Background: mir-399 microRNA precursor family: a 149-nucleotide RNA sequence from Oryza sativa. NCBI's taxonomy places the organism under Eukaryota, Viridiplantae, Petrosaviidae, Oryza, Oryza sativa.
[Rfam]
RNA sequence: CUGUGAAUUACAGGGCAGUUCACCUUUGGCACAAGGGCAAGCAGUAGAAACCAUGCGUGCUUGCUAGAGCUGGAAAUGAUGCUGGUAGCAUUGCAUGGUUCAGGGAUCACAGAUCUCGUGCCAAAGGAGAAUUGCCCUGCGAUUUUGUC
Numbered sequence: 001c002u003g004u005g006a007a008u009u010a011c012a013g014g015g016c017a018g019u020u021c022a023c024c025u026u027u028g029g030c031a032c033a034a035g036g037g038c039a040a041g042c043a044g045u046a047g048a049a050a051c052c053a054u055g056c057g058u059g060c061u062u063g064c065u066a067g068a069g070c071u072g073g074a075a076a077u078g079a080u081g082c083u084g085g086u087a088g089c090a091u092u093g094c095a096u097g098g099u100u101c102a103g104g105g106a107u108c109a110c111a112g113a114u115c116u117c118g119u120g121c122c123a124a125a126g127g128a129g130a131a132u133u134g135c136c137c138u139g140c141g142a143u144u145u146u147g148u149c
Base pairs, nucleotide, nucleotide: 005145006144007143008142009141011139012138013137014136015135016134017132021129023127024126027123028122029121030120031119032118034116035115
About the family: mir-399 was identified in both Arabidopsis thaliana and Oryza sativa computationally and was later experimentally verified. mir-399 is thought to target mRNAs coding for a phosphatase transporter. For this family Rfam cites "Computational Identification of Plant MicroRNAs and Their Targets, Including a Stress-Induced miRNA" (Jones-Rhoades and Bartel, Mol Cell, 2004). The family has 13 seed sequences and 2,396 matches in Rfam 15.1.